[Rfam]
RNA sequence: AUGCCAUGAUGUGGACACUUAACUAGCAUCCAUUUGAACCUCCCCUACGUUUCUUGUAGUGUUUCAACUGGUUUCUGCUUGAAGCUCAAUAUCUCAUGCUUGGCAGUCU
Number, nucleotide and partner (000 for none) at each position: 001a109002u000003g107004c106005c102006a101007u000008g000009a000010u000011g000012u000013g000014g000015a000016c000017a000018c000019u000020u000021a000022a000023c000024u000025a000026g000027c000028a000029u000030c000031c000032a000033u000034u000035u000036g000037a000038a000039c000040c000041u000042c000043c000044c000045c000046u000047a000048c000049g000050u000051u000052u000053c000054u000055u000056g000057u000058a073059g000060u071061g000062u000063u000064u000065c000066a000067a000068c000069u000070g000071g060072u000073u058074u000075c000076u000077g000078c000079u000080u000081g000082a000083a000084g000085c000086u000087c000088a000089a000090u000091a000092u000093c000094u000095c000096a000097u000098g000099c000100u000101u006102g005103g000104c000105a000106g004107u003108c000109u001
This 109-nucleotide RNA from Nicotiana attenuata belongs to the Rfam family "Plant small nucleolar RNA R71".
A search with the family's covariance model found it, with a score of 45 bits.
By type it is a C/D-box small nucleolar RNA.
Pairs were carried over by alignment from the consensus structure, which was predicted with PFOLD.